[Rfam]
RNA sequence: UUUUGUCUGUGUGUGAAUGGUGUUCAGCACCAGGGAAGGUGUGUUUGCCUGUGUGUGGAUGAUAUUUAUCACUAGGGCAGUUGAGUUCUCAC
Numbered sequence: 001u002u003u004u005g006u007c008u009g010u011g012u013g014u015g016a017a018u019g020g021u022g023u024u025c026a027g028c029a030c031c032a033g034g035g036a037a038g039g040u041g042u043g044u045u046u047g048c049c050u051g052u053g054u055g056u057g058g059a060u061g062a063u064a065u066u067u068a069u070c071a072c073u074a075g076g077g078c079a080g081u082u083g084a085g086u087u088c089u090c091a092c
Base pairs, nucleotide, nucleotide: 004083005082007080008079009078010077018074019073020072021071022070024068026066027065029063031061032060034054036052037050038049039048040047041046
The record is a 92-nucleotide RNA from Branchiostoma floridae, which matches "mir-2060 microRNA precursor family" in Rfam. A search with the family's covariance model found it, with a score of 55 bits. The family's consensus secondary structure was predicted with RNAalifold. Gene Ontology terms of the family: RISC complex and miRNA-mediated post-transcriptional gene silencing.